[Rfam]
This 94-nucleotide RNA sequence from uncultured Candidatus Thioglobus sp. belongs to the Rfam family "t44 RNA".
Rfam's curators write: This family consists of a number of bacterial RNA genes of between 135 and 170 bases in length. The t44 gene has been identified in several species of enteric bacteria but homologs have also been identified in Pseudomonas and Coxiella species.
Taxonomically the source falls in Candidatus Thioglobus (Bacteria, Pseudomonadati, Pseudomonadota, Pseudothioglobaceae (SeqCode)).

RNA sequence: CCCGAGUUGUUUAAUGUAUCACACGGCUUGGCAUAUUAGUCAGGGUGCCUUUUUUUAAACGAAGGUUGGCUAGUAGAAGUCGUGGAAGAAAGAG
Numbered sequence: 001c002c003c004g005a006g007u008u009g010u011u012u013a014a015u016g017u018a019u020c021a022c023a024c025g026g027c028u029u030g031g032c033a034u035a036u037u038a039g040u041c042a043g044g045g046u047g048c049c050u051u052u053u054u055u056u057a058a059a060c061g062a063a064g065g066u067u068g069g070c071u072a073g074u075a076g077a078a079g080u081c082g083u084g085g086a087a088g089a090a091a092g093a094g
Base pairs, nucleotide, nucleotide: 022084023083024082025081026080027079028078029077034075035074036073037072038071039070040069041068042067047066048065049064050063051062